[Rfam]
RNA sequence: GUUUCCGUCCCCUUGCGGGGAAGUGGUUGGGAAAAUC
Numbered sequence: 001g002u003u004u005c006c007g008u009c010c011c012c013u014u015g016c017g018g019g020g021a022a023g024u025g026g027u028u029g030g031g032a033a034a035a036u037c
Base pairs, nucleotide, nucleotide: 005026006025008021009020010019011018012017
CRISPR RNA direct repeat element: a 37-nucleotide RNA from Thermocoleostomius sinensis. Rfam 15.1 lists 366 matches to the family in 23 species. The organism belongs to Thermocoleostomius sinensis, within Bacteria.